RNA: SAH (S-adenosyl-L-homocysteine) riboswitch aptamer
Organism: Caenimonas sedimenti
RNA sequence: CACCUCAAGGAGCGCUGCAGCGGCCACGACGCCGUCAGGCUUGAGAUGUCUUUCAACCGCGCUCACUUCUG
Numbered sequence: 001c002a003c004c005u006c007a008a009g010g011a012g013c014g015c016u017g018c019a020g021c022g023g024c025c026a027c028g029a030c031g032c033c034g035u036c037a038g039g040c041u042u043g044a045g046a047u048g049u050c051u052u053u054c055a056a057c058c059g060c061g062c063u064c065a066c067u068u069c070u071g
Stems, first nucleotide, its partner, number of pairs: 002047001004045005021034004